[Rfam]
RNA sequence: GACUAGUGAUGAUCUGAUUUUGCCAGAUGACUUAAGCUGAUUAUAACCCUUACCGUUCCACUUUUUUCUGAGGUC
Number, nucleotide and partner (000 for none) at each position: 001g075002a074003c073004u072005a000006g000007u000008g000009a000010u000011g000012a000013u000014c000015u000016g000017a000018u000019u000020u000021u000022g000023c000024c000025a000026g000027a000028u000029g000030a000031c000032u000033u000034a000035a000036g000037c000038u000039g000040a000041u000042u000043a000044u000045a000046a000047c000048c000049c000050u000051u000052a000053c000054c000055g000056u000057u000058c000059c000060a000061c000062u000063u000064u000065u000066u000067u000068c000069u000070g000071a000072g004073g003074u002075c001
RNA: Small nucleolar RNA SNORD47
Organism: Oreochromis niloticus